Source information: Nuclear RNase P: a 372-nucleotide RNA sequence from Alternaria alternata. Gene Ontology terms of the family: ribonuclease P complex, ribonuclease P activity and tRNA processing. By type it is a ribozyme. Rfam describes the family as follows. Ribonuclease P (RNase P) is a ubiquitous endoribonuclease, found in archaea, bacteria and eukarya as well as chloroplasts and mitochondria. The family's consensus secondary structure is taken from published work. The organism belongs to Alternaria alternata complex, within Eukaryota.
RNA sequence: GCCUUGCCAACGCUGCGUUUCUUUGCACACAUACAGACUCUCCUCACGGAGCUCGUCCUACCCUGCAAAUGAGAAAUUCGGAGUAAUCUUCACUAUCAUCAAGCCCUCUUGUGGCUGUACUGCUCGUAAGAGCCUGGCGUGACUCACGUCUGCAUCCGGCAUCAGAAAACUCAGGGCCCAGAAAGCGCGCUCCCACUUCGGUGGGAGUGUUGUGGAACUGGUGUCCCUAUGGGAGUCGGUGCGAAGAUUGUGUGCUUUGAUCCUUUGGGAGAGAGGUGACACUGUAGUACAAUACGCAGCGUACUUGACCUUGAGUAGCCCUUGGGCGAAAGAGGGCACGGUAUCAUUCGAUUCUGAUUACUCUGGCGAGGC
Dot-bracket structure: ((((..(((..(((((((...((((..........((((((......)))).))...........)))).........[[[[[....((((..............................((((....))))..(((((.....))))).((((..................(((.................................................))).........).)))))))...............................................)))))))(((((..................................))))).......]]]]].......)))..))))
Numbered sequence: 001g002c003c004u005u006g007c008c009a010a011c012g013c014u015g016c017g018u019u020u021c022u023u024u025g026c027a028c029a030c031a032u033a034c035a036g037a038c039u040c041u042c043c044u045c046a047c048g049g050a051g052c053u054c055g056u057c058c059u060a061c062c063c064u065g066c067a068a069a070u071g072a073g074a075a076a077u078u079c080g081g082a083g084u085a086a087u088c089u090u091c092a093c094u095a096u097c098a099u100c101a102a103g104c105c106c107u108c109u110u111g112u113g114g115c116u117g118u119a120c121u122g123c124u125c126g127u128a129a130g131a132g133c134c135u136g137g138c139g140u141g142a143c144u145c146a147c148g149u150c151u152g153c154a155u156c157c158g159g160c161a162u163c164a165g166a167a168a169a170c171u172c173a174g175g176g177c178c179c180a181g182a183a184a185g186c187g188c189g190c191u192c193c194c195a196c197u198u199c200g201g202u203g204g205g206a207g208u209g210u211u212g213u214g215g216a217a218c219u220g221g222u223g224u225c226c227c228u229a230u231g232g233g234a235g236u237c238g239g240u241g242c243g244a245a246g247a248u249u250g251u252g253u254g255c256u257u258u259g260a261u262c263c264u265u266u267g268g269g270a271g272a273g274a275g276g277u278g279a280c281a282c283u284g285u286a287g288u289a290c291a292a293u294a295c296g297c298a299g300c301g302u303a304c305u306u307g308a309c310c311u312u313g314a315g316u317a318g319c320c321c322u323u324g325g326g327c328g329a330a331a332g333a334g335g336g337c338a339c340g341g342u343a344u345c346a347u348u349c350g351a352u353u354c355u356g357a358u359u360a361c362u363c364u365g366g367c368g369a370g371g372c
Stems, first nucleotide, its partner, number of pairs: 001372004007366003012300007022069004036054002038051004079356005088246004122133004136150005152242003155238001174228003301344005